Bacterial RNase P class A: a 333-nucleotide sequence from Gillisia limnaea. Lineage of the source: Bacteria > Bacteroidota > Flavobacteriales > Flavobacteriaceae > Gillisia limnaea.
RNA sequence: AAAGCAGAUCGCCUUAUCGCCUUGAUUUAGAUCAGGGAGGAAAGUCCGGACACCAUAGGGCAGUAUAGUGGGUAACACCCACCGAUCUUAACUCCGGUUUUACCGGAAGUGGGAUCAGGACCAGUGCAACAGAAAGUAUGUACAGAUAAUGCUGUAGUGAAACCAGGUAAACUCUAUGCGGUGCAAUGCCAUGUAUACCGGUAUUUAAGGGCGGCCCGUCCGUUGCCGGAGGGUAGGCAGCUAAAGGUUUUUGGCAACAAAAAUCUCAGAUAAAUGAUAAGGGUCCCGGAGUUUUUCGGGAUACAGAAUCCGGAUUAUAGAUCUGCUUUUUUU
Dot-bracket structure: ((((((((((((((((((.(((((((....)))))))....[[..[[[[[((((...[[[[.((((((((((.....)))))((((((((...................))))))).)((...((((..............((((......))))...........))..)))))))))))))...((((.......(((((......((((.]]]]))))...)))))......))))......((((((((....))))))))..........)))))))..........................]]]]].]].).))))))))))....

Notes
Rfam classes the family as a ribozyme. Rfam links the family to the GO terms dimeric ribonuclease P complex, tRNA processing and ribonuclease P activity.